[Rfam]
RNA sequence: GGCACAGGUUCCAAGAAAGGUCCAUUAGUAGGAUCAGCUGACCCUACUAAACUAUCUUACUUCGAAUUUGUGCCC
Numbered sequence: 001g002g003c004a005c006a007g008g009u010u011c012c013a014a015g016a017a018a019g020g021u022c023c024a025u026u027a028g029u030a031g032g033a034u035c036a037g038c039u040g041a042c043c044c045u046a047c048u049a050a051a052c053u054a055u056c057u058u059a060c061u062u063c064g065a066a067u068u069u070g071u072g073c074c075c
Stems, first nucleotide, its partner, number of pairs: 001074009011064001013062003017058005025050006032043001034041002
RNA: mir-5928 microRNA precursor family